The record is a 35-nucleotide sequence from Pedobacter planticolens, which matches "DUF805b RNA" in Rfam. A search with the family's covariance model found it, with a score of 37 bits. NCBI's taxonomy places the organism under Bacteria, Sphingobacteriia, Sphingobacteriales, Sphingobacteriaceae, Pedobacter.

RNA sequence: UAAGAGCUUACCGAAAAUCUUUAAAAGAGUAGGUU
Numbered sequence: 001u002a003a004g005a006g007c008u009u010a011c012c013g014a015a016a017a018u019c020u021u022u023a024a025a026a027g028a029g030u031a032g033g034u035u
Stems, first nucleotide, its partner, number of pairs: 002021004010034003